[Rfam]
Class I RNA from Dictyostelium: a 57-nucleotide sequence from Heterostelium album. Rfam describes the family as follows. Dictyostelium Class I RNA was first reported for Aspegren et al. 2004 in Dictyostelium discoideum.
RNA sequence: GUUCUCCUUACUGCAAUUAAAUUAAAAUUCAACUGUUACUGAAAACCCGGGGAGCUG
Dot-bracket structure: ((((((...........................................))))))..
Numbered sequence: 001g002u003u004c005u006c007c008u009u010a011c012u013g014c015a016a017u018u019a020a021a022u023u024a025a026a027a028u029u030c031a032a033c034u035g036u037u038a039c040u041g042a043a044a045a046c047c048c049g050g051g052g053a054g055c056u057g
Stems, first nucleotide, its partner, number of pairs: 001055006